[Rfam]
RNA sequence: AAACAAUCAGCGCUUUGUUGCCUUAUGUGAACCGAGCUCUUGUAUGCUUCAGGUAGAUAACUAGCAUUGUUCUUGGGUGAACCUCUGUACUUUGCAUUUGUUGCAUUUUGUGACUGAAGGCUCAGUUAAUGAUGCCACAUUU
Numbered sequence: 001a002a003a004c005a006a007u008c009a010g011c012g013c014u015u016u017g018u019u020g021c022c023u024u025a026u027g028u029g030a031a032c033c034g035a036g037c038u039c040u041u042g043u044a045u046g047c048u049u050c051a052g053g054u055a056g057a058u059a060a061c062u063a064g065c066a067u068u069g070u071u072c073u074u075g076g077g078u079g080a081a082c083c084u085c086u087g088u089a090c091u092u093u094g095c096a097u098u099u100g101u102u103g104c105a106u107u108u109u110g111u112g113a114c115u116g117a118a119g120g121c122u123c124a125g126u127u128a129a130u131g132a133u134g135c136c137a138c139a140u141u142u
Base pairs, nucleotide, nucleotide: 005049006048012037014035015034017032065134066133067132068131069130070129071128078124079123080122082120083119084118
RNA: Small nucleolar RNA snoR74
Organism: Malus baccata